RNA sequence: ACCGGGCUUGGUAGCGCUUGCCUGUAACUCGAGUGAGAGUAUCAAAGUGGUUGAACUUUGUCUUGGACCAGCUGGUUGGGUCUGCUUGUGCAGUAUCUGGCUUGCCCGUUCCAAGUCGAUAGUUGGUUCAUGUGGCUUGAGCGAAGGCUUGGGUCACUUGGACCCUAGAGUAGGGGGCAAUGCGUUAGGCUGGUUUCACAGAGCUGCGAUAACCCCUCGCUUUCGACAGUGGAAGGAUAACAAGCCUAAGCUCAUCAGACUCGCUUGCCAACUGGUCCGAAACAAAUGAACAACCACUUUU
Dot-bracket structure: ((.((((..(......)..))))....(((....))).))...((((((((((..(.((((.(.((.((((.((((.(((((((.(.(.(........((((((.((.(((((.(((((.(((.((((((.(((((((((((....))))))))))).))))))(....).(((((......(((....(((......)))....)))....))))).))).)))))..)))))))....))))))....).)).)))))))....)))).)))))).).).)))..)..)))))))))).
Numbered sequence: 001a002c003c004g005g006g007c008u009u010g011g012u013a014g015c016g017c018u019u020g021c022c023u024g025u026a027a028c029u030c031g032a033g034u035g036a037g038a039g040u041a042u043c044a045a046a047g048u049g050g051u052u053g054a055a056c057u058u059u060g061u062c063u064u065g066g067a068c069c070a071g072c073u074g075g076u077u078g079g080g081u082c083u084g085c086u087u088g089u090g091c092a093g094u095a096u097c098u099g100g101c102u103u104g105c106c107c108g109u110u111c112c113a114a115g116u117c118g119a120u121a122g123u124u125g126g127u128u129c130a131u132g133u134g135g136c137u138u139g140a141g142c143g144a145a146g147g148c149u150u151g152g153g154u155c156a157c158u159u160g161g162a163c164c165c166u167a168g169a170g171u172a173g174g175g176g177g178c179a180a181u182g183c184g185u186u187a188g189g190c191u192g193g194u195u196u197c198a199c200a201g202a203g204c205u206g207c208g209a210u211a212a213c214c215c216c217u218c219g220c221u222u223u224c225g226a227c228a229g230u231g232g233a234a235g236g237a238u239a240a241c242a243a244g245c246c247u248a249a250g251c252u253c254a255u256c257a258g259a260c261u262c263g264c265u266u267g268c269c270a271a272c273u274g275g276u277c278c279g280a281a282a283c284a285a286a287u288g289a290a291c292a293a294c295c296a297c298u299u300u301u
Stems, first nucleotide, its partner, number of pairs: 001040002004023004010017001028037003044300010056288001058285003061281001063279001065277002068275004073270004078262007086254001088253001090251001099246006106236002109234005115227005121221003125164006132157011165170001172217005183208003190201003